[Rfam]
RNA sequence: UGAAACUACUAGGGGUGCCCUAACUGGGCUGAGAGGAAAGUGUGUUUCCGACUCUUAUCGACCUGAUCUGGUUAAUGCCAGCGUAGGGAAGUAGUGAGAUUGUUCU
Numbered sequence: 001u002g003a004a005a006c007u008a009c010u011a012g013g014g015g016u017g018c019c020c021u022a023a024c025u026g027g028g029c030u031g032a033g034a035g036g037a038a039a040g041u042g043u044g045u046u047u048c049c050g051a052c053u054c055u056u057a058u059c060g061a062c063c064u065g066a067u068c069u070g071g072u073u074a075a076u077g078c079c080a081g082c083g084u085a086g087g088g089a090a091g092u093a094g095u096g097a098g099a100u101u102g103u104u105c106u
Stems, first nucleotide, its partner, number of pairs: 006094005011055004017029004036048004062087004068081004
This 106-nucleotide RNA from Oceanobacillus indicireducens belongs to the Rfam family "TPP riboswitch aptamer (THI element)". Taxonomically the source falls in Oceanobacillus (Bacteria, Bacillati, Bacillota, Bacilli). It scores 74 bits against the family's covariance model.